[Rfam]
Nucleotides: 104
Stems, first nucleotide, its partner, number of pairs: 007057006015047002020044002022041001023038006058077008079099001081102001085097003
Number, partner (000 for none) and nucleotide at each position: 001000c002000c003000a004000a005000u006000u007057g008056u009055u010054c011053u012052c013000u014000a015047g016046g017000g018000u019000u020044c021043c022041g023038c024037a025036g026035c027034g028033g029000c030000a031000u032000g033028c034027c035026g036025c037024u038023g039000g040000u041022c042000u043021g044020g045000u046016c047015c048000g049000a050000g051000a052012g053011a054010g055009g056008a057007c058077g059076c060075a061074c062073a063072g064071c065070c066000a067000g068000g069000c070065g071064g072063c073062u074061g075060u076059g077058u078000c079099c080000a081102c082000g083000g084000a085097g086096g087095g088000a089000g090000a091000a092000a093000a094000g095087c096086c097085c098000g099079g100000g101000a102081g103000g104000a